[Rfam]
RNA sequence: ACCUACAUAGUACAACGGUUAGUAUACUGGACUCUCACUCCAGAGAUUCGGGUUCAAUUCCCGGUGUAGGUA
Number, nucleotide and partner (000 for none) at each position: 001a071002c070003c069004u068005a067006c066007a065008u000009a000010g025011u024012a023013c022014a000015a000016c000017g000018g000019u000020u000021a000022g013023u012024a011025u010026a000027c043028u042029g041030g040031a039032c000033u000034c000035u000036c000037a000038c000039u031040c030041c029042a028043g027044a000045g000046a000047u000048u064049c063050g062051g061052g060053u000054u000055c000056a000057a000058u000059u000060c052061c051062c050063g049064g048065u007066g006067u005068a004069g003070g002071u001072a000
RNA: tRNA